[Rfam]
RNA sequence: GAAUAAGGGCGCAUGGUGGAUGCCUAGGAUCUAAGAGGCGAAGAAGGACGUGGUAAGCUGCGAUAAGCUACGGGGAGCUGCAAACGAGCAAUACAUCCGUAGAUUUCCGAAUGGGACAACCCGGCACAUUGAAGAUGUGUCACUCGAAAGAGAGCCAACGCAGGGAACUGAAACAUCUAAGUACCUGCAGGAAAAGAAAAUAACUAAUGAUUCCCUAAGUAGUGGCGAGCGAACAGGGAAGAGCCCAAACCGGAUCGAAGCAAUUCUAUCCGGGGUUGUAGGACUACUUUUAGAAAGUCAGAUCAAGUUGAAUCAUCUGGAAAGAUGAGCCGUAGCAGGUGAUAGCCCUGUAGACAGAAAUUCUGAUAGACGUGUAGUAUCCUGAGUAGCGCGGGACCGGAGGAAUCCUGUGUGAAACUGCCAGCACCAUCUGGUAAGGCUAAAUACUCCUUAGAUACCGAUAGUGAACCAGUACCGUAAGGGAAAGGUGAAAAGUACUCCGAACAGGAGAGUGAAAUAGUUCCUGAAACCGUGCGCCUACAAG
Numbered sequence: 001g002a003a004u005a006a007g008g009g010c011g012c013a014u015g016g017u018g019g020a021u022g023c024c025u026a027g028g029a030u031c032u033a034a035g036a037g038g039c040g041a042a043g044a045a046g047g048a049c050g051u052g053g054u055a056a057g058c059u060g061c062g063a064u065a066a067g068c069u070a071c072g073g074g075g076a077g078c079u080g081c082a083a084a085c086g087a088g089c090a091a092u093a094c095a096u097c098c099g100u101a102g103a104u105u106u107c108c109g110a111a112u113g114g115g116a117c118a119a120c121c122c123g124g125c126a127c128a129u130u131g132a133a134g135a136u137g138u139g140u141c142a143c144u145c146g147a148a149a150g151a152g153a154g155c156c157a158a159c160g161c162a163g164g165g166a167a168c169u170g171a172a173a174c175a176u177c178u179a180a181g182u183a184c185c186u187g188c189a190g191g192a193a194a195a196g197a198a199a200a201u202a203a204c205u206a207a208u209g210a211u212u213c214c215c216u217a218a219g220u221a222g223u224g225g226c227g228a229g230c231g232a233a234c235a236g237g238g239a240a241g242a243g244c245c246c247a248a249a250c251c252g253g254a255u256c257g258a259a260g261c262a263a264u265u266c267u268a269u270c271c272g273g274g275g276u277u278g279u280a281g282g283a284c285u286a287c288u289u290u291u292a293g294a295a296a297g298u299c300a301g302a303u304c305a306a307g308u309u310g311a312a313u314c315a316u317c318u319g320g321a322a323a324g325a326u327g328a329g330c331c332g333u334a335g336c337a338g339g340u341g342a343u344a345g346c347c348c349u350g351u352a353g354a355c356a357g358a359a360a361u362u363c364u365g366a367u368a369g370a371c372g373u374g375u376a377g378u379a380u381c382c383u384g385a386g387u388a389g390c391g392c393g394g395g396a397c398c399g400g401a402g403g404a405a406u407c408c409u410g411u412g413u414g415a416a417a418c419u420g421c422c423a424g425c426a427c428c429a430u431c432u433g434g435u436a437a438g439g440c441u442a443a444a445u446a447c448u449c450c451u452u453a454g455a456u457a458c459c460g461a462u463a464g465u466g467a468a469c470c471a472g473u474a475c476c477g478u479a480a481g482g483g484a485a486a487g488g489u490g491a492a493a494a495g496u497a498c499u500c501c502g503a504a505c506a507g508g509a510g511a512g513u514g515a516a517a518u519a520g521u522u523c524c525u526g527a528a529a530c531c532g533u534g535c536g537c538c539u540a541c542a543a544g
Base pairs, nucleotide, nucleotide: 007539008538009537010536011535012534013533014532015531016530022524023488024487027459028458029456030455031454032453033452034451035450036448037447038155039154046108047107048106049062050061051060068102069101070100071099072098073097074096077089078088079087113122114121115120123141124140125139126138127137128136129135143152144151145150159190160188161187162186163185164184170177171176200208201207211444212239213238214237215236216235222230223229242441243440244439245438250273251272252271253270254269255268280383281382282381284377285376286375287374297367298366299365300364301363302362307355308354309353313328314327315326316325317324331335337349338348339347389413390412391411392410393409394408395407396406420435421434422433423432424431475482476481498510499509500508501507
Shown here is a 544-nucleotide part of an RNA from Chitinophaga flava, a member of the family "Bacterial large subunit ribosomal RNA". Lineage of the source: Bacteria > Pseudomonadati > Bacteroidota > Chitinophagales > Chitinophaga. The base pairs follow the family's consensus structure, which is taken from published work.